[Rfam]
ZMP/ZTP riboswitch aptamer (pfl RNA motif): a 91-nucleotide sequence from Cellulomonas persica. The base pairs follow the family's consensus structure, which is taken from published work. A search with the family's covariance model found it, with a score of 56 bits.
RNA sequence: UGUGCGCGUCGCAACUGGCGCAACGAGGUGGGUCACCACCGGGGAGCGACGAAGCAGCUGGACCACGGGGUCGGACGCCUGGGCCCUCGGU
Number, nucleotide and partner (000 for none) at each position: 001u000002g000003u056004g055005c054006g000007c051008g050009u049010c048011g047012c046013a000014a000015c043016u042017g079018g078019c077020g076021c000022a000023a000024c000025g000026a000027g000028g039029u038030g037031g036032g000033u000034c000035a000036c031037c030038a029039c028040c000041g000042g016043g015044g000045a000046g012047c011048g010049a009050c008051g007052a000053a000054g005055c004056a003057g000058c000059u000060g000061g000062a000063c000064c000065a000066c000067g000068g086069g085070g084071u083072c082073g000074g000075a000076c020077g019078c018079c017080u000081g000082g072083g071084c070085c069086c068087u000088c000089g000090g000091u000